[Rfam]
Shown here is a 155-nucleotide RNA from Populus tomentosa, a member of the family "MIR2912 microRNA precursor family". The organism belongs to Populus, within Eukaryota.
RNA sequence: UAUAGAACUUGAGAUAUGGGUUGAACACUGAACAGUGUCCAAGCUACAAGAUAGAUUCAGACUUCUCUGUUGUUGCUAUAAUUUGGACUUAAAAACAGCAUUUUUAAAUCUUGGACUCCACUUGAAAGUUGUAGGCCUAUGUCUUACCUAAUAUG
Numbered sequence: 001u002a003u004a005g006a007a008c009u010u011g012a013g014a015u016a017u018g019g020g021u022u023g024a025a026c027a028c029u030g031a032a033c034a035g036u037g038u039c040c041a042a043g044c045u046a047c048a049a050g051a052u053a054g055a056u057u058c059a060g061a062c063u064u065c066u067c068u069g070u071u072g073u074u075g076c077u078a079u080a081a082u083u084u085g086g087a088c089u090u091a092a093a094a095a096c097a098g099c100a101u102u103u104u105u106a107a108a109u110c111u112u113g114g115a116c117u118c119c120a121c122u123u124g125a126a127a128g129u130u131g132u133a134g135g136c137c138u139a140u141g142u143c144u145u146a147c148c149u150a151a152u153a154u155g
Base pairs, nucleotide, nucleotide: 002154003153004152007149009146011145012144013143014142015141016140017139018138019137020136021134022133023132025130027129028128029127035123037121043117045115048112049111050110051109052108054105055104060099062098063097068092072088073087074086